[Rfam]
RNA sequence: CGAUCAGCCAAGCAUACAUCAGUUGCAAGCGUUGGAGAUCACAGUCUGAUUA
Numbered sequence: 001c002g003a004u005c006a007g008c009c010a011a012g013c014a015u016a017c018a019u020c021a022g023u024u025g026c027a028a029g030c031g032u033u034g035g036a037g038a039u040c041a042c043a044g045u046c047u048g049a050u051u052a
Base pairs, nucleotide, nucleotide: 002039004037008035009034011033012030013029018050019049020048021047022046
Rfam assigns this 52-nucleotide RNA sequence from Polerovirus AEYV to the family "Exoribonuclease-resistant RNA (xrRNA) plant-infecting virus (class 3)". Its family is annotated with viral RNA genome replication in the Gene Ontology. The family's consensus secondary structure is taken from published work. Exoribonuclease-resistant RNA (xrRNA) plant-infecting virus (class 3) is a ncRNA that was reported in Plant viruses.